[Rfam]
RNA sequence: UAGUCCAAGAGGAGAGGUGCGGAGGAGGCGAAGGCAAAACCCGGAACAGGCGGCAUCAACCAUGUUGGCUGACGGAGGCGGAUAACCCUGCAAGAGAAGGGCAGUCCAAUACCACCAAGAGGCUCCGGAAGUGAAGAGGACUGGAUUCGGGGGAAAGUCGGCUGGC
Numbered sequence: 001u002a003g004u005c006c007a008a009g010a011g012g013a014g015a016g017g018u019g020c021g022g023a024g025g026a027g028g029c030g031a032a033g034g035c036a037a038a039a040c041c042c043g044g045a046a047c048a049g050g051c052g053g054c055a056u057c058a059a060c061c062a063u064g065u066u067g068g069c070u071g072a073c074g075g076a077g078g079c080g081g082a083u084a085a086c087c088c089u090g091c092a093a094g095a096g097a098a099g100g101g102c103a104g105u106c107c108a109a110u111a112c113c114a115c116c117a118a119g120a121g122g123c124u125c126c127g128g129a130a131g132u133g134a135a136g137a138g139g140a141c142u143g144g145a146u147u148c149g150g151g152g153g154a155a156a157g158u159c160g161g162c163u164g165g166c
Stems, first nucleotide, its partner, number of pairs: 001016001004013003027166001029164002034158002040151005047143003061139001063137001068132003073127005080107004086101004
RNA: Group II catalytic intron D1-D4-3